[Rfam]
RNA sequence: AUCGAACUGAAUAGGUCUUUUCGUAUAAUCCCGGGAAUCGGCCCGGGAGUCUCUACGGGGUCACCGCAAAUGAUCCGUCUACGAAAAGUGAAACGGCAUGC
Number, nucleotide and partner (000 for none) at each position: 001a000002u000003c000004g000005a000006a000007c000008u000009g000010a000011a000012u000013a000014g000015g000016u000017c000018u087019u086020u085021u084022c083023g082024u081025a080026u000027a000028a000029u048030c047031c046032c045033g044034g043035g042036a000037a000038u000039c000040g000041g000042c035043c034044c033045g032046g031047g030048a029049g000050u000051c000052u000053c000054u000055a000056c000057g000058g076059g075060g074061u073062c072063a071064c000065c000066g000067c000068a000069a000070a000071u063072g062073a061074u060075c059076c058077g000078u000079c000080u025081a024082c023083g022084a021085a020086a019087a018088g000089u000090g000091a000092a000093a000094c000095g000096g000097c000098a000099u000100g000101c000
A member of the RNA family "Purine riboswitch aptamer" from Cohnella candida, 101 nucleotides long.